[Rfam]
Overview:
The family of this 286-nucleotide RNA sequence from Indicator maculatus is "Metazoan signal recognition particle RNA". Rfam classes the family as a non-coding RNA gene. The family's consensus secondary structure is taken from published work. About the family: The signal recognition particle (SRP) is a universally conserved ribonucleoprotein. It is involved in the co-translational targeting of proteins to membranes. The eukaryotic SRP consists of a 300-nucleotide 7S RNA and six proteins: SRPs 72, 68, 54, 19, 14, and 9. Archaeal SRP consists of a 7S RNA and homologues of the eukaryotic SRP19 and SRP54 proteins. The organism belongs to Indicator, within Eukaryota. Its family is annotated with SRP-dependent cotranslational protein targeting to membrane, signal sequence recognition and signal recognition particle, endoplasmic reticulum targeting in the Gene Ontology.

RNA sequence: GCUGGGCAAGGUGGCUUGUGCCUGUAAUCCAAGCACCAGGGAGGAUCAGAUUGGUGGAUUGGCUCAAGCCUAGGGCUUCUCGGCUGCAGUAGAUGUCCAUGCUGAAGCUGGCAUCAAUAUGGUGGUCCUGGGGGAACCAGGGGCCAUCAGGUCAGCUAAGGAGGGGUGAACCGGCCCAGGCUGGAGAUGGAGCAGGUCAACACUCCUGUGCUGAUCAGUAUUAGGAUGGUACCUGUGAAAUCUCCCUGUAGCAGAGCUCAAGUGGGAGAGCAGGACCCAAUUUCCU
Numbered sequence: 001g002c003u004g005g006g007c008a009a010g011g012u013g014g015c016u017u018g019u020g021c022c023u024g025u026a027a028u029c030c031a032a033g034c035a036c037c038a039g040g041g042a043g044g045a046u047c048a049g050a051u052u053g054g055u056g057g058a059u060u061g062g063c064u065c066a067a068g069c070c071u072a073g074g075g076c077u078u079c080u081c082g083g084c085u086g087c088a089g090u091a092g093a094u095g096u097c098c099a100u101g102c103u104g105a106a107g108c109u110g111g112c113a114u115c116a117a118u119a120u121g122g123u124g125g126u127c128c129u130g131g132g133g134g135a136a137c138c139a140g141g142g143g144c145c146a147u148c149a150g151g152u153c154a155g156c157u158a159a160g161g162a163g164g165g166g167u168g169a170a171c172c173g174g175c176c177c178a179g180g181c182u183g184g185a186g187a188u189g190g191a192g193c194a195g196g197u198c199a200a201c202a203c204u205c206c207u208g209u210g211c212u213g214a215u216c217a218g219u220a221u222u223a224g225g226a227u228g229g230u231a232c233c234u235g236u237g238a239a240a241u242c243u244c245c246c247u248g249u250a251g252c253a254g255a256g257c258u259c260a261a262g263u264g265g266g267a268g269a270g271c272a273g274g275a276c277c278c279a280a281u282u283u284c285c286u
Stems, first nucleotide, its partner, number of pairs: 002044002004023005010017002028042003048283007059273002062271004068263002071260001073258002079256003083252006089236004094231003097225002100223002103220002107215001109213006117152002120149010131138002156160001162207007173198004181190003